Overview:
A member of the RNA family "Glycine riboswitch aptamer" from Nocardioides seonyuensis, 100 nucleotides long. A reference for the family is Mandal et al. (2004), "A glycine-dependent riboswitch that uses cooperative binding to control gene expression", Science. It scores 65 bits against the family's covariance model. This family represents the bacterial glycine riboswitch. Glycine riboswitches usually consist of two metabolite-binding aptamers domains with similar structures in tandem. The aptamers cooperatively bind glycine to regulate the expression of downstream genes. In Bacillus subtilis, this riboswitch is found upstream of the gcvT operon which controls glycine degradation.
[Rfam]
RNA sequence: CGAUCCCGCGCGGGAGAGUCGGCGUGACCGCCAGGUCAUGCUGCGCCGAAGGGGCAAUUCCUCCCCGGAACCUCUCAGGCACCCGGACCGCGCGGACCAG
Numbered sequence: 001c002g003a004u005c006c007c008g009c010g011c012g013g014g015a016g017a018g019u020c021g022g023c024g025u026g027a028c029c030g031c032c033a034g035g036u037c038a039u040g041c042u043g044c045g046c047c048g049a050a051g052g053g054g055c056a057a058u059u060c061c062u063c064c065c066c067g068g069a070a071c072c073u074c075u076c077a078g079g080c081a082c083c084c085g086g087a088c089c090g091c092g093c094g095g096a097c098c099a100g
Base pairs, nucleotide, nucleotide: 006095007094008093009092010091011090012089013088020043021042022041023040024039025038026037027036028035029034045080046079047078048076049075052074053073054072058068059067